The family of this 84-nucleotide sequence from Paenibacillus lutrae is "c-di-GMP-I riboswitch aptamer". The organism belongs to Paenibacillus, within Bacteria. Its Rfam clan is "c-di-GMP_I riboswitch clan". A search with the family's covariance model found it, with a score of 73 bits.
RNA sequence: AAAAAAAAUAGGCAAACUCUUCGAAAGGAGGGGACGCAAAGCUAAAGGGGCUACUUCCAAUGGAUAUGCCAGCCAGUUGCAAAU
Numbered sequence: 001a002a003a004a005a006a007a008a009u010a011g012g013c014a015a016a017c018u019c020u021u022c023g024a025a026a027g028g029a030g031g032g033g034a035c036g037c038a039a040a041g042c043u044a045a046a047g048g049g050g051c052u053a054c055u056u057c058c059a060a061u062g063g064a065u066a067u068g069c070c071a072g073c074c075a076g077u078u079g080c081a082a083a084u
Base pairs, nucleotide, nucleotide: 012037013036017032018031019030020029021028022027040078041077042076043075047074048073049070050069051068056064057063058062